This 120-nucleotide sequence from Sciurus vulgaris belongs to the Rfam family "Small nucleolar RNA SNORA1". The base pairs follow the family's consensus structure, which was predicted with PFOLD. About the family: ACA1 is a member of the H/ACA class of snoRNA that guide the sites of modification of uridines to pseudouridines. By type it is an H/ACA-box small nucleolar RNA. Rfam 15.1 lists 1,282 matches to the family in 515 species. Taxonomically the source falls in Sciurus (Eukaryota, Eumetazoa, Deuterostomia, Chordata).
RNA sequence: AGCCUCAUUGUAGAUGAGAAUGGGCACUCUAGAUCAGUUUCUAAAAUUGGUCAAUGUGGCUAAAUUGACACAGGUUAUGCUUCCAUCAUUGCAGUGAUGACAAUGAGAUCUGUAACAUUU
Numbered sequence: 001a002g003c004c005u006c007a008u009u010g011u012a013g014a015u016g017a018g019a020a021u022g023g024g025c026a027c028u029c030u031a032g033a034u035c036a037g038u039u040u041c042u043a044a045a046a047u048u049g050g051u052c053a054a055u056g057u058g059g060c061u062a063a064a065u066u067g068a069c070a071c072a073g074g075u076u077a078u079g080c081u082u083c084c085a086u087c088a089u090u091g092c093a094g095u096g097a098u099g100a101c102a103a104u105g106a107g108a109u110c111u112g113u114a115a116c117a118u119u120u
Base pairs, nucleotide, nucleotide: 002060003059004058006056007055008054021043022042023041024040026038027037070113071112072111073110074109084099085098086097087096088095089094